[Rfam]
RNA sequence: GUUGCACUACGACGUUGGUGACUGCCAUCAAGUUUUUUGAUCUAUGCCUUUAAUGACAAGGGAGUCAACUGUUCUCGUGGCAGUAUACCGGGCAUGUACCCGGAAACUUUAAACGAGGAAUUUAGGUUCCCACCUGGAUAAACCCAGGUCAUAAACUUAGGUAAAACGGCGUCGCGGUGAACUU
Numbered sequence: 001g002u003u004g005c006a007c008u009a010c011g012a013c014g015u016u017g018g019u020g021a022c023u024g025c026c027a028u029c030a031a032g033u034u035u036u037u038u039g040a041u042c043u044a045u046g047c048c049u050u051u052a053a054u055g056a057c058a059a060g061g062g063a064g065u066c067a068a069c070u071g072u073u074c075u076c077g078u079g080g081c082a083g084u085a086u087a088c089c090g091g092g093c094a095u096g097u098a099c100c101c102g103g104a105a106a107c108u109u110u111a112a113a114c115g116a117g118g119a120a121u122u123u124a125g126g127u128u129c130c131c132a133c134c135u136g137g138a139u140a141a142a143c144c145c146a147g148g149u150c151a152u153a154a155a156c157u158u159a160g161g162u163a164a165a166a167c168g169g170c171g172u173c174g175c176g177g178u179g180a181a182c183u184u
Stems, first nucleotide, its partner, number of pairs: 003181001005179004010174006018167002034155003038151006060131003064127003068123001071121001072119007083107002088103005
RNA: 6S / SsrS RNA